Shown here is a 92-nucleotide sequence, a member of the family "Group II catalytic intron D1-D4-1".
RNA sequence: UACCUCAUACAGCAAUGUGUGUGGGGAUUAGUGAGAAGUCAGCAGAGGUCAUAGUAGUGAGAGAGAAACUAAUACCAUCUCCCGACUCGGAC
Numbered sequence: 001u002a003c004c005u006c007a008u009a010c011a012g013c014a015a016u017g018u019g020u021g022u023g024g025g026g027a028u029u030a031g032u033g034a035g036a037a038g039u040c041a042g043c044a045g046a047g048g049u050c051a052u053a054g055u056a057g058u059g060a061g062a063g064a065g066a067a068a069c070u071a072a073u074a075c076c077a078u079c080u081c082c083c084g085a086c087u088c089g090g091a092c
Base pairs, nucleotide, nucleotide: 001026004023006021007020008019009018010017011016039046040045048092049091050090057083059081060080061079062078

Rfam describes the family as follows. Group II introns are found in rRNA, tRNA and mRNA of organelles in fungi, plants and protists, and also in mRNA in bacteria.